Source information: A member of the RNA family "Small nucleolar RNA SNORD35" from Myotis myotis, 88 nucleotides long. Pairs were carried over by alignment from the consensus structure, which was predicted with PFOLD. The family is grouped with related families in Rfam's "SNORD35 clan". From the family's description: U35 is a C/D box snoRNA located in intron 6 of ribosomal protein L13A and intron 3 of ribosomal protein S11 in humans and at homologous positions in mouse and chicken ribosomal protein genes. Rfam classes the family as a C/D-box small nucleolar RNA. The organism belongs to Myotis, within Eukaryota. Its family is annotated with nucleolus and RNA processing in the Gene Ontology.
RNA sequence: GGCAGGUGAUGUCUGUUUUCACGAUGGUCUUCAGAUGCCUGUGACAGGCGCUGCUGAGAAAGCCAGUUGGCAGAACUGAUGCCAGAAC
Numbered sequence: 001g002g003c004a005g006g007u008g009a010u011g012u013c014u015g016u017u018u019u020c021a022c023g024a025u026g027g028u029c030u031u032c033a034g035a036u037g038c039c040u041g042u043g044a045c046a047g048g049c050g051c052u053g054c055u056g057a058g059a060a061a062g063c064c065a066g067u068u069g070g071c072a073g074a075a076c077u078g079a080u081g082c083c084a085g086a087a088c
Stems, first nucleotide, its partner, number of pairs: 001083004